[Rfam]
Nucleotides: 087
Base pairs, nucleotide, nucleotide: 001087002086003085004084005083007081008080017070018069019068020067021066026061027060028059029058030057036051037050038049039048040047041046
Number, partner (000 for none) and nucleotide at each position: 001087g002086g003085u004084c005083u006000c007081c008080g009000a010000g011000g012000a013000g014000g015000u016000c017070g018069g019068g020067g021066u022000u023000g024000c025000c026061c027060a028059c029058c030057g031000u032000u033000u034000g035000g036051g037050u038049a039048u040047g041046a042000u043000g044000u045000a046041u047040c048039a049038u050037a051036c052000u053000a054000c055000a056000a057030c058029g059028g060027u061026g062000c063000g064000a065000a066021g067020c068019u069018c070017c071000g072000u073000a074000c075000u076000u077000a078000c079000a080008c081007g082000c083005g084004g085003g086002c087001u
About this RNA:
This 87-nucleotide RNA from Tombusvirus cucumis belongs to the Rfam family "Tombusvirus internal replication element (IRE)". The organism belongs to Tombusvirus cucumis, within Viruses. Gene Ontology term of the family: viral genome replication. The sequence is in the family's curated seed alignment. On this family, see Monkewich et al., J Virol 2005: "The p92 Polymerase Coding Region Contains an Internal RNA Element Required at an Early Step in Tombusvirus Genome Replication". Rfam describes the family as follows. This family represents the Tombusvirus internal replication element (IRE) which is located within the region coding for p92 polymerase. The element is essential for viral replication and is thought to be required at an early stage of this process such as template recruitment and/or replicase complex assembly. By type it is a cis-regulatory element. Pairs were carried over by alignment from the consensus structure, which was predicted with PFOLD.